[Rfam]
RNA sequence: AGCUCUACAGGUAACUGGCGAAUGUAGUGGAGCAACCACAAGGGAGCCUGUAGAGGGGGAAAAAGCCGUUCGCCUGGGCUGCAACA
Numbered sequence: 001a002g003c004u005c006u007a008c009a010g011g012u013a014a015c016u017g018g019c020g021a022a023u024g025u026a027g028u029g030g031a032g033c034a035a036c037c038a039c040a041a042g043g044g045a046g047c048c049u050g051u052a053g054a055g056g057g058g059g060a061a062a063a064a065g066c067c068g069u070u071c072g073c074c075u076g077g078g079c080u081g082c083a084a085c086a
Base pairs, nucleotide, nucleotide: 003055004054005053006052007051008050009049010048011047012046015043016042017074018073019072020071021070027039028038029037030036064080065079066078067077

Shown here is an 86-nucleotide RNA from Ktedonosporobacter rubrisoli, a member of the family "ZMP/ZTP riboswitch aptamer (pfl RNA motif)". Taxonomically the source falls in Ktedonosporobacter (Bacteria, Bacillati, Ktedonobacteria, Ktedonosporobacteraceae). The base pairs follow the family's consensus structure, which is taken from published work.